[Rfam]
RNA sequence: CGCUCAAUUGGUCGGGUUAAGUGACGGCAGCAUUUGAGGGAUACCUGGGACUGUGGGGACGUCUCGAAAUACCAGGCGGGGCGGCGAAGUGAGCACCCUGAGACGAAAGGCUGACGGGU
Numbered sequence: 001c002g003c004u005c006a007a008u009u010g011g012u013c014g015g016g017u018u019a020a021g022u023g024a025c026g027g028c029a030g031c032a033u034u035u036g037a038g039g040g041a042u043a044c045c046u047g048g049g050a051c052u053g054u055g056g057g058g059a060c061g062u063c064u065c066g067a068a069a070u071a072c073c074a075g076g077c078g079g080g081g082c083g084g085c086g087a088a089g090u091g092a093g094c095a096c097c098c099u100g101a102g103a104c105g106a107a108a109g110g111c112u113g114a115c116g117g118g119u
Base pairs, nucleotide, nucleotide: 001040003038004037005036006035007034009032010031027054028053029052030051045075046074047073048072050070061104062103063102064101077100078099079098080097081096089115090114092112093111094110
RNA: Betaproteobacteria-1 RNA
Organism: Paracidovorax valerianellae